[Rfam]
RNA sequence: AUGAAGGCAAGGGGAGAGACUACAAAUGUAGCGCCGAAGGAGCAAGCUGGAAAGUGAAUCUCUCAGGCAAAAGAACCCUUGCUCGACG
Numbered sequence: 001a002u003g004a005a006g007g008c009a010a011g012g013g014g015a016g017a018g019a020c021u022a023c024a025a026a027u028g029u030a031g032c033g034c035c036g037a038a039g040g041a042g043c044a045a046g047c048u049g050g051a052a053a054g055u056g057a058a059u060c061u062c063u064c065a066g067g068c069a070a071a072a073g074a075a076c077c078c079u080u081g082c083u084c085g086a087c088g
Stems, first nucleotide, its partner, number of pairs: 006083008020031004033068003036064002040062003046055002
Shown here is an 88-nucleotide RNA sequence from Peribacillus cavernae, a member of the family "Glycine riboswitch aptamer". The pairing is the family consensus, mapped onto this sequence. Lineage of the source: Bacteria > Bacillati > Bacillota > Caryophanales > Peribacillus. Its family is annotated with glycine biosynthetic process in the Gene Ontology.